[Rfam]
RNA: Archaeal large subunit ribosomal RNA, nucleotides 34 to 633
Organism: Caldivirga maquilingensis
RNA sequence: UCGGCUCGGGCGCCGAGGAAGGGCGUGGCAAGCGGCGAUAUGCCCGGGGUAGCCGCAGGCAGGCGUUGAUCCCGGGAUCCCCGAAUGGGGCUUCCUACCUGGGCCGAAUAGGCUCAGGUGCCCCGUAGGGGGUGGGAACGCGGGGAACGGAAACAUCUUAGUACCCGCAGGAGGGGAAACCAAAAGGGACCCCCUGAGUAGGGGCGACCGAAAGGGGGUUAGCCCAAACCGAACCCCCAUGGGGUAACCGUGGGGGGAUGUGGUGUUUGGGCUUGGGUACCGCCGAGGCAGCCUAGCCGAAGUGGGCUGGAAAGCCCCGCCGUAGAGGGUGAUAGCCCCGUAGGCUAAAGGUUGCUGGCGGAUUCCCAAUGUCCCGGAGUACCACGGCUUGGUUUUGCCGUGGGAAUACGGGGGCCUCCAGCCCCUAAGGCUAAGUACGUCCCGAGUCCGAUAGCGAACAAGUACCGUGAGGGAAAGCAUGGGACUCAGGAAACAUGGAGUAGUGUUGAUUGCCCGCGGAUUCUCUGCUCAUUGCUUAAUUACCUCGUGAGAAAACCCACCGGUGGGGUUAUGGGUUAAUUAAAGGGGGUAGUUGUAUUA
Numbered sequence: 001u002c003g004g005c006u007c008g009g010g011c012g013c014c015g016a017g018g019a020a021g022g023g024c025g026u027g028g029c030a031a032g033c034g035g036c037g038a039u040a041u042g043c044c045c046g047g048g049g050u051a052g053c054c055g056c057a058g059g060c061a062g063g064c065g066u067u068g069a070u071c072c073c074g075g076g077a078u079c080c081c082c083g084a085a086u087g088g089g090g091c092u093u094c095c096u097a098c099c100u101g102g103g104c105c106g107a108a109u110a111g112g113c114u115c116a117g118g119u120g121c122c123c124c125g126u127a128g129g130g131g132g133u134g135g136g137a138a139c140g141c142g143g144g145g146a147a148c149g150g151a152a153a154c155a156u157c158u159u160a161g162u163a164c165c166c167g168c169a170g171g172a173g174g175g176g177a178a179a180c181c182a183a184a185a186g187g188g189a190c191c192c193c194c195u196g197a198g199u200a201g202g203g204g205c206g207a208c209c210g211a212a213a214g215g216g217g218g219u220u221a222g223c224c225c226a227a228a229c230c231g232a233a234c235c236c237c238c239a240u241g242g243g244g245u246a247a248c249c250g251u252g253g254g255g256g257g258a259u260g261u262g263g264u265g266u267u268u269g270g271g272c273u274u275g276g277g278u279a280c281c282g283c284c285g286a287g288g289c290a291g292c293c294u295a296g297c298c299g300a301a302g303u304g305g306g307c308u309g310g311a312a313a314g315c316c317c318c319g320c321c322g323u324a325g326a327g328g329g330u331g332a333u334a335g336c337c338c339c340g341u342a343g344g345c346u347a348a349a350g351g352u353u354g355c356u357g358g359c360g361g362a363u364u365c366c367c368a369a370u371g372u373c374c375c376g377g378a379g380u381a382c383c384a385c386g387g388c389u390u391g392g393u394u395u396u397g398c399c400g401u402g403g404g405a406a407u408a409c410g411g412g413g414g415c416c417u418c419c420a421g422c423c424c425c426u427a428a429g430g431c432u433a434a435g436u437a438c439g440u441c442c443c444g445a446g447u448c449c450g451a452u453a454g455c456g457a458a459c460a461a462g463u464a465c466c467g468u469g470a471g472g473g474a475a476a477g478c479a480u481g482g483g484a485c486u487c488a489g490g491a492a493a494c495a496u497g498g499a500g501u502a503g504u505g506u507u508g509a510u511u512g513c514c515c516g517c518g519g520a521u522u523c524u525c526u527g528c529u530c531a532u533u534g535c536u537u538a539a540u541u542a543c544c545u546c547g548u549g550a551g552a553a554a555a556c557c558c559a560c561c562g563g564u565g566g567g568g569u570u571a572u573g574g575g576u577u578a579a580u581u582a583a584a585g586g587g588g589g590u591a592g593u594u595g596u597a598u599u600a
Stems, first nucleotide, its partner, number of pairs: 003449002005446006011439002021082003024037003043076006052064003087096003121132004139170001140168005150157002180187002191218005201209002221432004229263003239251004273369004280361004296345003302318001304317004321325001327339003382403007410426005